[Rfam]
This 170-nucleotide RNA sequence from Thermincola carboxydiphila belongs to the Rfam family "M-box riboswitch aptamer (ykoK leader)". Pairs were carried over by alignment from the consensus structure. For this family Rfam cites "New RNA motifs suggest an expanded scope for riboswitches in bacterial genetic control" (Barrick et al., Proc Natl Acad Sci U S A, 2004).
RNA sequence: CCCAUUCUUUGUUAGGUGAGGCUUCUGCAUAGACCAUACGCCACUGCCCGGAAAUGUCGAGAGACGCCAAUGGGUCAACAGGUACUACCGGAUUAAGGUUUUACCUAAUGUGGCUGAGUCGUAGAACUCUAGCUAUGUAUGUGCCAAAGCUCAGACGAGGAAGGUGGUCG
Dot-bracket structure: ....(.(((((([.(((..(((..((((((((.......(((((.(((((....((((....))))....))))).....((((..(((......])))..))))....))))).(((........)))...))))))).).)))...)))...))....)))).)....
Rfam's curators write: M-box riboswitch, also know as ykoK leader is described as a metaloregulatory RNA that sense divalent metals and function as a genetic control element of genes related to divalent metal transport in bacteria. It was first reported upstream of the B.subtilis ykoK gene and genes with related functions in other bacteria.